[Rfam]
A member of the RNA family "c-di-AMP riboswitch aptamer (ydaO/yuaA leader)" from Actinospica durhamensis, 217 nucleotides long. From the family's description: This family represents a conserved RNA structure found upstream of the ydaO and yuaA genes in Bacillus subtilis and related genes in other bacteria. Taxonomically the source falls in Actinospica (Bacteria, Bacillati, Actinomycetes, Actinospicaceae).
RNA sequence: GAUCCCGCCGCGCCAAGGCCCUCGGAGCCGGGGACCCAACAGAUCACGCGCACCACGCGCAGGUCCCCCGGGGUGAAUCGGCCACCACAACCACGAGCGAACGCGACCACACGCCACGCGUGUGCGCCCCGUCCCCGUGCGUGCCGGUGGCUGUAGGGCGAAUUCCCCUUCCGCCCGAACCCGUCAGCUAACCCGGUAGGCGGCCGAAGGAGAGGCA
Numbered sequence: 001g002a003u004c005c006c007g008c009c010g011c012g013c014c015a016a017g018g019c020c021c022u023c024g025g026a027g028c029c030g031g032g033g034a035c036c037c038a039a040c041a042g043a044u045c046a047c048g049c050g051c052a053c054c055a056c057g058c059g060c061a062g063g064u065c066c067c068c069c070g071g072g073g074u075g076a077a078u079c080g081g082c083c084a085c086c087a088c089a090a091c092c093a094c095g096a097g098c099g100a101a102c103g104c105g106a107c108c109a110c111a112c113g114c115c116a117c118g119c120g121u122g123u124g125c126g127c128c129c130c131g132u133c134c135c136c137g138u139g140c141g142u143g144c145c146g147g148u149g150g151c152u153g154u155a156g157g158g159c160g161a162a163u164u165c166c167c168c169u170u171c172c173g174c175c176c177g178a179a180c181c182c183g184u185c186a187g188c189u190a191a192c193c194c195g196g197u198a199g200g201c202g203g204c205c206g207a208a209g210g211a212g213a214g215g216c217a
Stems, first nucleotide, its partner, number of pairs: 006202004014025001027197006037070001071182003079153008156176004